[Rfam]
RNA sequence: GGCUUCAACAACCCCGUAGGUGGGGCGUGAAACUGCGCAGUGCACCUACUGCAGCC
Numbered sequence: 001g002g003c004u005u006c007a008a009c010a011a012c013c014c015c016g017u018a019g020g021u022g023g024g025g026c027g028u029g030a031a032a033c034u035g036c037g038c039a040g041u042g043c044a045c046c047u048a049c050u051g052c053a054g055c056c
Stems, first nucleotide, its partner, number of pairs: 001056004006051002013042001014040001016049007023041001025038004

Shown here is a 56-nucleotide RNA, a member of the family "nadA riboswitch".
The family's RNA type in Rfam is small RNA.
The literature on the family includes a 2020 paper in RNA by Huang et al., "Structure and ligand binding of the ADP-binding domain of the NAD(+) riboswitch".
Rfam's curators put it in the seed alignment.
The family's consensus secondary structure is taken from published work.